Overview: The family of this 77-nucleotide RNA from Chelonia mydas is "mir-1788 microRNA precursor family". Its family is annotated with RISC complex and miRNA-mediated post-transcriptional gene silencing in the Gene Ontology. Pairs were carried over by alignment from the consensus structure, which was predicted with RNAalifold.

RNA sequence: CUGUGUGUCAGGCUUGUUUUCAGUUGCCUGUGGUUGGUUAGAAGGACUCAGGCAGCUAAAGCAAGUCUGGGACGCGU
Numbered sequence: 001c002u003g004u005g006u007g008u009c010a011g012g013c014u015u016g017u018u019u020u021c022a023g024u025u026g027c028c029u030g031u032g033g034u035u036g037g038u039u040a041g042a043a044g045g046a047c048u049c050a051g052g053c054a055g056c057u058a059a060a061g062c063a064a065g066u067c068u069g070g071g072a073c074g075c076g077u
Base pairs, nucleotide, nucleotide: 003075004074006072008070010068011067012066013065014064015063016062017061018060019059020058022057023056024055025054026053027052028051029050030049032047